This 45-nucleotide RNA from Acipenser ruthenus belongs to the Rfam family "Histone 3' UTR stem-loop".

RNA sequence: ACAAAGGCUCUUUUCAGAGCCACCCACAAUAUCAAGGAAGAAUUU
Numbered sequence: 001a002c003a004a005a006g007g008c009u010c011u012u013u014u015c016a017g018a019g020c021c022a023c024c025c026a027c028a029a030u031a032u033c034a035a036g037g038a039a040g041a042a043u044u045u
Base pairs, nucleotide, nucleotide: 006021007020008019009018010017011016

Overview
Lineage of the source: Eukaryota > Opisthokonta > Metazoa > Chordata > Acipenser.